Record summary: Rfam assigns this 104-nucleotide RNA sequence from Priestia koreensis to the family "S10-Clostridia ribosomal protein leader". NCBI's taxonomy places the organism under Bacteria, Bacillati, Bacillota, Bacillaceae, Priestia. By type it is a cis-regulatory leader.

RNA sequence: UGACUGCGAUGAUGUGAGAGGUUGCCGACACACCCGGCCGCUUUGCCAUGGCGCGUGUGUGGGAAAUUUUCACAGAGUAUGUCUAUUUUUAAAGUAGGCGAAAA
Numbered sequence: 001u002g003a004c005u006g007c008g009a010u011g012a013u014g015u016g017a018g019a020g021g022u023u024g025c026c027g028a029c030a031c032a033c034c035c036g037g038c039c040g041c042u043u044u045g046c047c048a049u050g051g052c053g054c055g056u057g058u059g060u061g062g063g064a065a066a067u068u069u070u071c072a073c074a075g076a077g078u079a080u081g082u083c084u085a086u087u088u089u090u091a092a093a094g095u096a097g098g099c100g101a102a103a104a
Base pairs, nucleotide, nucleotide: 014073015072016071018070019069020068021067025062026061027060080103082101083100087098088097089096
On this family, see Eckert and Weinberg, BMC Microbiol 2020: "Discovery of 20 novel ribosomal leader candidates in bacteria and archaea".